[Rfam]
RNA sequence: CGAUAGUACACACAGUUUAGAAUCUUGAAGACUGAUGAACUUCAUGUUUUUACAGAAAUUAUACAGAAUGUA
Numbered sequence: 001c002g003a004u005a006g007u008a009c010a011c012a013c014a015g016u017u018u019a020g021a022a023u024c025u026u027g028a029a030g031a032c033u034g035a036u037g038a039a040c041u042u043c044a045u046g047u048u049u050u051u052a053c054a055g056a057a058a059u060u061a062u063a064c065a066g067a068a069u070g071u072a
Base pairs, nucleotide, nucleotide: 026052027051028050029049030048031047032046033044034043

The record is a 72-nucleotide RNA from Cuculus canorus, which matches "FIE3 (ftz instability element 3') element" in Rfam.
The pairing is the family consensus, mapped onto this sequence.
On this family, see Riedl and Jacobs-Lorena, Mol Cell Biol 1996: "Determinants of Drosophila fushi tarazu mRNA instability".
The organism belongs to Cuculus, within Eukaryota.
The family's RNA type in Rfam is cis-regulatory element.